Rfam assigns this 77-nucleotide sequence from Gadus morhua to the family "mir-92 microRNA precursor family". Its family is annotated with miRNA-mediated post-transcriptional gene silencing and RISC complex in the Gene Ontology. The source organism's lineage runs through Eukaryota, Euteleostomi, Ctenosquamata, Gadidae and Gadus. This family represents the microRNA precursor mir-92. Human miR-92 has two predicted hairpin precursor sequences: mir-92-1 on chromosome 13 and mir-92-2 on chromosome X. miR-92 has also been cloned from mouse embryonic stem cells. Rfam 15.1 lists 1,347 matches to the family in 653 species.
RNA sequence: UUUUCUGUGCAGGUUGGGAGAGGUGACAAUGCUCUGUUUGGGAUGGUAUUGCACUUGUCCCGGCCUGUUGAGGACUU
Numbered sequence: 001u002u003u004u005c006u007g008u009g010c011a012g013g014u015u016g017g018g019a020g021a022g023g024u025g026a027c028a029a030u031g032c033u034c035u036g037u038u039u040g041g042g043a044u045g046g047u048a049u050u051g052c053a054c055u056u057g058u059c060c061c062g063g064c065c066u067g068u069u070g071a072g073g074a075c076u077u
Base pairs, nucleotide, nucleotide: 004073005072006071009068010067011066012065013064014063016061017060018059019058022055023054024053027051028050029049030048031047032046033045